[Rfam]
Record summary: Rfam assigns this 108-nucleotide RNA sequence from Sphingomonas cavernae to the family "Glycine riboswitch aptamer". The match comes from Rfam's covariance-model search (46 bits). A reference for the family is Babina et al. (2017), "In Vivo Behavior of the Tandem Glycine Riboswitch in Bacillus subtilis", MBio.
RNA sequence: UGACACUCUGGAAAGCGUUCUGGCGAAGGCCAGGACCACCGAAGGGGUAAGCCCGGUCCUUCGCAGGAUCGCGCGAAAGCUCUCAGGUACCGUGACAGAGGGGGCAAU
Numbered sequence: 001u002g003a004c005a006c007u008c009u010g011g012a013a014a015g016c017g018u019u020c021u022g023g024c025g026a027a028g029g030c031c032a033g034g035a036c037c038a039c040c041g042a043a044g045g046g047g048u049a050a051g052c053c054c055g056g057u058c059c060u061u062c063g064c065a066g067g068a069u070c071g072c073g074c075g076a077a078a079g080c081u082c083u084c085a086g087g088u089a090c091c092g093u094g095a096c097a098g099a100g101g102g103g104g105c106a107a108u
Base pairs, nucleotide, nucleotide: 004102006100007099008098009097010096017036018035019034020033038088039087040086041084042083045082046081047080051074052073